[Rfam]
RNA sequence: UUCCACAGCUACUGGCCUGCAACUGUUCAGUAUUGUAGCAAUUGCAGUAUUCCAGCUGUGGGAGAUUAGCAGUUACACCUAUAUGAUUCUCCUUUCAAAUGGGGAGAUAAUUGACGUGUAACGGACAAGA
Numbered sequence: 001u002u003c004c005a006c007a008g009c010u011a012c013u014g015g016c017c018u019g020c021a022a023c024u025g026u027u028c029a030g031u032a033u034u035g036u037a038g039c040a041a042u043u044g045c046a047g048u049a050u051u052c053c054a055g056c057u058g059u060g061g062g063a064g065a066u067u068a069g070c071a072g073u074u075a076c077a078c079c080u081a082u083a084u085g086a087u088u089c090u091c092c093u094u095u096c097a098a099a100u101g102g103g104g105a106g107a108u109a110a111u112u113g114a115c116g117u118g119u120a121a122c123g124g125a126c127a128a129g130a
Base pairs, nucleotide, nucleotide: 003061004060005059006058017047018046019045020044021043022042024040025039075119076118077117078116084110086108087106088105089104090103091102092101
A member of the RNA family "Small nucleolar RNA SNORA41" from Anolis carolinensis, 130 nucleotides long.
Pairs were carried over by alignment from the consensus structure, which was predicted with PFOLD.
Its family is annotated with nucleolus and RNA processing in the Gene Ontology.
The family has 31 seed sequences and 676 matches in Rfam 15.1.